[Rfam]
Rfam assigns this 76-nucleotide sequence from Abrus precatorius to the family "Small nucleolar RNA R12". The family's consensus secondary structure was predicted with PFOLD. For this family Rfam cites "The high diversity of snoRNAs in plants: identification and comparative study of 120 snoRNA genes from Oryza sativa" (Chen et al., Nucleic Acids Res, 2003). It scores 70 bits against the family's covariance model. Its family is annotated with RNA processing and nucleolus in the Gene Ontology. Rfam 15.1 lists 992 matches to the family in 220 species. About the family: snoR12 is a C/D box small nucleolar RNA, which acts as a methylation guide for 25S ribosomal RNA in plants. snoR12 has been alternatively named snoZ44 in Arabidopsis and snoZ131 in rice.
RNA sequence: UGUUGAGUGAUGAUAAAAAUCAGACGGAUUCCCAUUGAUUUUUUACAUGAGAUCACACCAGCUACUUCUGACAACA
Dot-bracket structure: (((((..................................................................)))))